[Rfam]
RNA sequence: GUGAAUCCAGUAGGAAUUGAACCUAUGAAUUCACCAAUUAUAAGUUAGGUGCUCUAGCAAUUCAACCAUGGAUGC
Numbered sequence: 001g002u003g004a005a006u007c008c009a010g011u012a013g014g015a016a017u018u019g020a021a022c023c024u025a026u027g028a029a030u031u032c033a034c035c036a037a038u039u040a041u042a043a044g045u046u047a048g049g050u051g052c053u054c055u056a057g058c059a060a061u062u063c064a065a066c067c068a069u070g071g072a073u074g075c
Stems, first nucleotide, its partner, number of pairs: 003075001005073004010026005040069002044066003048062003
The family of this 75-nucleotide RNA sequence from Carnegiea gigantea is "Plastid-ycf2 5UTR RNA". The base pairs follow the family's consensus structure, which was predicted with LocARNA. The family's RNA type in Rfam is cis-regulatory element. On this family, see Richter et al., Plant Commun 2023: "Retrograde signaling in plants: A critical review focusing on the GUN pathway and beyond". The organism belongs to Carnegiea, within Eukaryota.